The family of this 114-nucleotide RNA is "drum RNA".

RNA sequence: AAGUGUUGAAGCAUAGCAGCGUACCGGAAAGCCUUGUUAUGCGGAGCUUUCGAGAGGGGUUGUGCAGUGAAACCUCAAACCGGAGUAGGCGUAAGCCGAAAGAAAAUGCUCAAA
Numbered sequence: 001a002a003g004u005g006u007u008g009a010a011g012c013a014u015a016g017c018a019g020c021g022u023a024c025c026g027g028a029a030a031g032c033c034u035u036g037u038u039a040u041g042c043g044g045a046g047c048u049u050u051c052g053a054g055a056g057g058g059g060u061u062g063u064g065c066a067g068u069g070a071a072a073c074c075u076c077a078a079a080c081c082g083g084a085g086u087a088g089g090c091g092u093a094a095g096c097c098g099a100a101a102g103a104a105a106a107u108g109c110u111c112a113a114a
Stems, first nucleotide, its partner, number of pairs: 001049004011042009021032002024083004064109003088097003
The sequence is in the family's curated seed alignment.